[Rfam]
RNA sequence: AGAUUUCUUCGGGGCAGGGUGAAAUUCCCGACCGACGGUGAUAACGUUUUUACGUUUAAGUCCGUGACCCGCGUUUGCGGUGGAUGCAGUGUGAAUCUGCAACCGACAGUUAAAGUCUGGAUGGGAGAAGAAAAAA
Numbered sequence: 001a002g003a004u005u006u007c008u009u010c011g012g013g014g015c016a017g018g019g020u021g022a023a024a025u026u027c028c029c030g031a032c033c034g035a036c037g038g039u040g041a042u043a044a045c046g047u048u049u050u051u052a053c054g055u056u057u058a059a060g061u062c063c064g065u066g067a068c069c070c071g072c073g074u075u076u077g078c079g080g081u082g083g084a085u086g087c088a089g090u091g092u093g094a095a096u097c098u099g100c101a102a103c104c105g106a107c108a109g110u111u112a113a114a115g116u117c118u119g120g121a122u123g124g125g126a127g128a129a130g131a132a133a134a135a136a
Stems, first nucleotide, its partner, number of pairs: 004133007017029003031116002033105002035065004060103002069080002085101005107119003
Shown here is a 136-nucleotide sequence from Loigolactobacillus backii, a member of the family "FMN riboswitch aptamer (RFN element)". A search with the family's covariance model found it, with a score of 115 bits. The organism belongs to Loigolactobacillus, within Bacteria.